[Rfam]
Notes: A member of the RNA family "U12 minor spliceosomal RNA" from Harpegnathos saltator, 149 nucleotides long. The literature on the family includes a 1997 paper in Trends Biochem Sci by Tarn and Steitz, "Pre-mRNA splicing: the discovery of a new spliceosome doubles the challenge". Rfam classes the family as a spliceosomal small nuclear RNA.
RNA sequence: GUGCCUUAAACUAAUGAGUAAGGAAAAUAUAGAGCUUUGGUAACGCUUAGCUAUGCUUAAAUAAAGCGAACCAAUUUUUGAAGAGGUAAAGGUCGUCCCGCGGCCGUGCGAACUACUUUUUCGCGUGGCUGGGUGAAGCGACUUACCUC
Numbered sequence: 001g002u003g004c005c006u007u008a009a010a011c012u013a014a015u016g017a018g019u020a021a022g023g024a025a026a027a028u029a030u031a032g033a034g035c036u037u038u039g040g041u042a043a044c045g046c047u048u049a050g051c052u053a054u055g056c057u058u059a060a061a062u063a064a065a066g067c068g069a070a071c072c073a074a075u076u077u078u079u080g081a082a083g084a085g086g087u088a089a090a091g092g093u094c095g096u097c098c099c100g101c102g103g104c105c106g107u108g109c110g111a112a113c114u115a116c117u118u119u120u121u122c123g124c125g126u127g128g129c130u131g132g133g134u135g136a137a138g139c140g141a142c143u144u145a146c147c148u149c
Stems, first nucleotide, its partner, number of pairs: 004023005033052004039046001054068005083149005090144007099133001102130005108124005